[Rfam]
RNA sequence: UGGACCGGCGGCCGGUGGGUCGGCGGGCAUGGGAAGGACUGGAACAGCGAGGACCUUCCCACCCACCCACCGGAAACCCGGUGUCACUCGUGCGGGUGAGUUCGCCGGCUUCGCGGCCCGAUGGGGGGUUAUGGUCGCUUUCGACAACCCCACAACGUAUUCGGCCCCCGUCCGGGAUUCGCACUCCCGGCCGAGGGCCUGACCAAUCAGGAACGAGACCUUCCCG
Numbered sequence: 001u002g003g004a005c006c007g008g009c010g011g012c013c014g015g016u017g018g019g020u021c022g023g024c025g026g027g028c029a030u031g032g033g034a035a036g037g038a039c040u041g042g043a044a045c046a047g048c049g050a051g052g053a054c055c056u057u058c059c060c061a062c063c064c065a066c067c068c069a070c071c072g073g074a075a076a077c078c079c080g081g082u083g084u085c086a087c088u089c090g091u092g093c094g095g096g097u098g099a100g101u102u103c104g105c106c107g108g109c110u111u112c113g114c115g116g117c118c119c120g121a122u123g124g125g126g127g128g129u130u131a132u133g134g135u136c137g138c139u140u141u142c143g144a145c146a147a148c149c150c151c152a153c154a155a156c157g158u159a160u161u162c163g164g165c166c167c168c169c170g171u172c173c174g175g176g177a178u179u180c181g182c183a184c185u186c187c188c189g190g191c192c193g194a195g196g197g198c199c200u201g202a203c204c205a206a207u208c209a210g211g212a213a214c215g216a217g218a219c220c221u222u223c224c225c226g
Stems, first nucleotide, its partner, number of pairs: 007207001008204001014071004084099006113136001163199005169193002174188004210224004
RNA: Streptomyces sRNA 4677